[Rfam]
RNA sequence: UGGAGGACUGAGAAGGUUUAGCAGCUUGCUAUGUGAUGUUAUAACUGAUUAUAACCUCCUAAAUUAAAUUAAGGCAGAUGCAACAACUGGCUCCACGUGACACACGAGCUGAUGUGUUUGUGUACAGAUCUA
Numbered sequence: 001u002g003g004a005g006g007a008c009u010g011a012g013a014a015g016g017u018u019u020a021g022c023a024g025c026u027u028g029c030u031a032u033g034u035g036a037u038g039u040u041a042u043a044a045c046u047g048a049u050u051a052u053a054a055c056c057u058c059c060u061a062a063a064u065u066a067a068a069u070u071a072a073g074g075c076a077g078a079u080g081c082a083a084c085a086a087c088u089g090g091c092u093c094c095a096c097g098u099g100a101c102a103c104a105c106g107a108g109c110u111g112a113u114g115u116g117u118u119u120g121u122g123u124a125c126a127g128a129u130c131u132a
Base pairs, nucleotide, nucleotide: 002059003058004057005056006055015046016045017044018043019041020040021039022038023037025035079124080123081122084120085119088116089115